[Rfam]
RNA sequence: CUACCCACCGUAAGUUACGGUGUCACGGGCCCUCGAUACACUCUCAAAUUGCGGGAAAGUCCUGAGAACCUUUGAUACCACGGCCUCCGGGAAACCGAGGUGCAGCAGGCGAUGUAACGGUCGCCUGAUUGUAGAAACUCAAAGGAUUGGGCAAUCCGCAGCCAAGUCCCUUCUUGUCAGGCCAAGCCCGCGCAUGGCUCCUACUCGGUACGACUACCUCCUUGGUUGGCUGCCUGCUGACUUUGUGUUCCGACGUGAGUCAUAGUGACCAGUGGUAACGGCAAAUGGCCACUACUCUCGACAUCGGCCCACGGGCCACUUCUGUCAGCACCGCAGCUGGCCCGGUAGUCCUCCGUCGCCACUACCCAGUGGUGUCCUGACAAAUGGGAAAGGUUCAGAGACUAAACGGGAGUGGGGAUUUCCCUGUGUGCUGGUAGGCAUAUUAGCAGGGAGAUCUUUAAGAUAUAGUCCAGCCCCCGCGAAAGGCGGGC
Numbered sequence: 001c002u003a004c005c006c007a008c009c010g011u012a013a014g015u016u017a018c019g020g021u022g023u024c025a026c027g028g029g030c031c032c033u034c035g036a037u038a039c040a041c042u043c044u045c046a047a048a049u050u051g052c053g054g055g056a057a058a059g060u061c062c063u064g065a066g067a068a069c070c071u072u073u074g075a076u077a078c079c080a081c082g083g084c085c086u087c088c089g090g091g092a093a094a095c096c097g098a099g100g101u102g103c104a105g106c107a108g109g110c111g112a113u114g115u116a117a118c119g120g121u122c123g124c125c126u127g128a129u130u131g132u133a134g135a136a137a138c139u140c141a142a143a144g145g146a147u148u149g150g151g152c153a154a155u156c157c158g159c160a161g162c163c164a165a166g167u168c169c170c171u172u173c174u175u176g177u178c179a180g181g182c183c184a185a186g187c188c189c190g191c192g193c194a195u196g197g198c199u200c201c202u203a204c205u206c207g208g209u210a211c212g213a214c215u216a217c218c219u220c221c222u223u224g225g226u227u228g229g230c231u232g233c234c235u236g237c238u239g240a241c242u243u244u245g246u247g248u249u250c251c252g253a254c255g256u257g258a259g260u261c262a263u264a265g266u267g268a269c270c271a272g273u274g275g276u277a278a279c280g281g282c283a284a285a286u287g288g289c290c291a292c293u294a295c296u297c298u299c300g301a302c303a304u305c306g307g308c309c310c311a312c313g314g315g316c317c318a319c320u321u322c323u324g325u326c327a328g329c330a331c332c333g334c335a336g337c338u339g340g341c342c343c344g345g346u347a348g349u350c351c352u353c354c355g356u357c358g359c360c361a362c363u364a365c366c367c368a369g370u371g372g373u374g375u376c377c378u379g380a381c382a383a384a385u386g387g388g389a390a391a392g393g394u395u396c397a398g399a400g401a402c403u404a405a406a407c408g409g410g411a412g413u414g415g416g417g418a419u420u421u422c423c424c425u426g427u428g429u430g431c432u433g434g435u436a437g438g439c440a441u442a443u444u445a446g447c448a449g450g451g452a453g454a455u456c457u458u459u460a461a462g463a464u465a466u467a468g469u470c471c472a473g474c475c476c477c478c479g480c481g482a483a484a485g486g487c488g489g490g491c
Stems, first nucleotide, its partner, number of pairs: 039414005045408001050160006060151003064147001161394002167388003175382007398471001400470005416457012477489003480485001
The record is a 491-nucleotide RNA sequence from Paulinella micropora, which matches "Group I catalytic intron" in Rfam. On this family, see Cech, Annu Rev Biochem 1990: "Self-splicing of group I introns". Rfam links the family to the GO term Group I intron splicing. The organism belongs to Paulinella, within Eukaryota. It scores 67 bits against the family's covariance model.